[Rfam]
RNA: Z30 small nucleolar RNA
Organism: Myripristis murdjan
RNA sequence: CUGUGAUGAUGACCUACAAUUUAACUGACCUGGUAUUGCUGGCCUUCGGGUCAGCUCUGACCGGGACAUGACUUCAGUUAAUCUUCUCUCUGAGCAG
Numbered sequence: 001c002u003g004u005g006a007u008g009a010u011g012a013c014c015u016a017c018a019a020u021u022u023a024a025c026u027g028a029c030c031u032g033g034u035a036u037u038g039c040u041g042g043c044c045u046u047c048g049g050g051u052c053a054g055c056u057c058u059g060a061c062c063g064g065g066a067c068a069u070g071a072c073u074u075c076a077g078u079u080a081a082u083c084u085u086c087u088c089u090c091u092g093a094g095c096a097g
Base pairs, nucleotide, nucleotide: 003095004094038055039054040053041052